[Rfam]
RNA: transfer-messenger RNA
Organism: Defluviitoga tunisiensis
RNA sequence: GGGGACGUUCCGGAUUCGACGGGGAUAGGUUGGUUUCGGGAAGCGAGCCGAGGGUCUGCAACCUCGAAAAAAAGCAGAACAAUUUGAAAUGCCGAACAACCAGAAUUAGCUUUAGCUGCUGCCUAAUAUAGCGCACAGCUCGUCUCUCCUCAAGUUUAAGAAGCCUUUCUUGAGGAAUGAGGCGUCAGAAAAAGGCUUCACUUUUUGAGUCUAGUGCUCGGACUCAAAAAGUAACAAAAGUGCACUAGGGAGUUGAGACUCUGUCCGCAAAGUCACAAUUCCCAAAAAACGAUUGCGGACUGCGCUCGGAGAAGCCGAGGUCAACUAUCUUCGGACGCGGGUUCGACUCCCGCCGUCUCCACCA
Numbered sequence: 001g002g003g004g005a006c007g008u009u010c011c012g013g014a015u016u017c018g019a020c021g022g023g024g025a026u027a028g029g030u031u032g033g034u035u036u037c038g039g040g041a042a043g044c045g046a047g048c049c050g051a052g053g054g055u056c057u058g059c060a061a062c063c064u065c066g067a068a069a070a071a072a073a074g075c076a077g078a079a080c081a082a083u084u085u086g087a088a089a090u091g092c093c094g095a096a097c098a099a100c101c102a103g104a105a106u107u108a109g110c111u112u113u114a115g116c117u118g119c120u121g122c123c124u125a126a127u128a129u130a131g132c133g134c135a136c137a138g139c140u141c142g143u144c145u146c147u148c149c150u151c152a153a154g155u156u157u158a159a160g161a162a163g164c165c166u167u168u169c170u171u172g173a174g175g176a177a178u179g180a181g182g183c184g185u186c187a188g189a190a191a192a193a194g195g196c197u198u199c200a201c202u203u204u205u206u207g208a209g210u211c212u213a214g215u216g217c218u219c220g221g222a223c224u225c226a227a228a229a230a231g232u233a234a235c236a237a238a239a240g241u242g243c244a245c246u247a248g249g250g251a252g253u254u255g256a257g258a259c260u261c262u263g264u265c266c267g268c269a270a271a272g273u274c275a276c277a278a279u280u281c282c283c284a285a286a287a288a289a290c291g292a293u294u295g296c297g298g299a300c301u302g303c304g305c306u307c308g309g310a311g312a313a314g315c316c317g318a319g320g321u322c323a324a325c326u327a328u329c330u331u332c333g334g335a336c337g338c339g340g341g342u343u344c345g346a347c348u349c350c351c352g353c354c355g356u357c358u359c360c361a362c363c364a
Base pairs, nucleotide, nucleotide: 001360002359003358004357005356006355007354020333021332022331023330024329025328026327027326028325031323032322033321034320035319036318037317038316039315044308045307046306047305048304049066050065051064052063053062055078056077057076058075059074114140115139116138117137118136120135121134122133141184142183143182144181145180146179147176148175149174150173151172152171153170154169163197165195166194167193168192201231202230203229204228205227206226207225208224209223216245219242220241248283249282250281251280252279253278254277255276257274259272260271263300264299265298266297267296268295269294337353338352339351340350341349